[Rfam]
RNA sequence: CUAGUCCUUGUCAUGGGUGAGCGUGAGCACUCAAUGAGCGUAUAGCGAGAGUGGUCCUGCUGACACAUACAAACACACAACGCAUCGCCCUCCUACCCAGGUAGGACGGGUCAGGGUGCAAUUUUUGGAACC
Numbered sequence: 001c002u003a004g005u006c007c008u009u010g011u012c013a014u015g016g017g018u019g020a021g022c023g024u025g026a027g028c029a030c031u032c033a034a035u036g037a038g039c040g041u042a043u044a045g046c047g048a049g050a051g052u053g054g055u056c057c058u059g060c061u062g063a064c065a066c067a068u069a070c071a072a073a074c075a076c077a078c079a080a081c082g083c084a085u086c087g088c089c090c091u092c093c094u095a096c097c098c099a100g101g102u103a104g105g106a107c108g109g110g111u112c113a114g115g116g117u118g119c120a121a122u123u124u125u126u127g128g129a130a131c132c
Stems, first nucleotide, its partner, number of pairs: 005019001007017003021060003026055001028053005038046002082119005091106006
Dot-bracket structure: ....(.(((.....))).).(((..(.(((((.....((.....))..))))).)..))).....................(((((....((((((....))))))........))))).............
Shown here is a 132-nucleotide RNA from Acanthaster planci, a member of the family "U4atac minor spliceosomal RNA". The family has 61 seed sequences and 1,648 matches in Rfam 15.1. U4atac is an essential component of the minor U12-type spliceosome complex which is required for removal of the rarer class of eukaryotic introns (AT-AC, U12-type). Its family is annotated with pre-mRNA 5'-splice site binding, U4atac snRNP and mRNA 5'-splice site recognition in the Gene Ontology. Pairs were carried over by alignment from the consensus structure, which is taken from published work. Clan: U4 clan. It is annotated as a spliceosomal small nuclear RNA. A search with the family's covariance model found it, with a score of 78 bits.